[Rfam]
RNA sequence: CUACAGGGAUGAUUUAAAAAUUGAACUCCCUCUUUCUGGAUGCUUAGUGGAGAAAACAGAAAAAUUCUGAGUUAGC
Numbered sequence: 001c002u003a004c005a006g007g008g009a010u011g012a013u014u015u016a017a018a019a020a021u022u023g024a025a026c027u028c029c030c031u032c033u034u035u036c037u038g039g040a041u042g043c044u045u046a047g048u049g050g051a052g053a054a055a056a057c058a059g060a061a062a063a064a065u066u067c068u069g070a071g072u073u074a075g076c
Stems, first nucleotide, its partner, number of pairs: 001075002003072002